[Rfam]
RNA sequence: UAAGGGGCAACCGAAAACCUUAAGGAUAGAGUAGGUA
Numbered sequence: 001u002a003a004g005g006g007g008c009a010a011c012c013g014a015a016a017a018c019c020u021u022a023a024g025g026a027u028a029g030a031g032u033a034g035g036u037a
Stems, first nucleotide, its partner, number of pairs: 002021004010036003

Background:
The record is a 37-nucleotide RNA sequence from Aquimarina algiphila, which matches "DUF805b RNA" in Rfam. The base pairs follow the family's consensus structure, which is taken from published work.